[Rfam]
RNA sequence: AUAAUGAGACUUUCGUAGAAGUACGACUCGGUGCGAACCACGGAGAGGCUAGUUACCUAUGA
Numbered sequence: 001a002u003a004a005u006g007a008g009a010c011u012u013u014c015g016u017a018g019a020a021g022u023a024c025g026a027c028u029c030g031g032u033g034c035g036a037a038c039c040a041c042g043g044a045g046a047g048g049c050u051a052g053u054u055a056c057c058u059a060u061g062a
Stems, first nucleotide, its partner, number of pairs: 012059001013026004027045003031041003046058003
Dot-bracket structure: ...........(((((......))))(((.(((.....))).)))(((.......))))...

A member of the RNA family "pemK RNA", 62 nucleotides long.
The base pairs follow the family's consensus structure, which is taken from published work.
Rfam classes the family as a cis-regulatory element.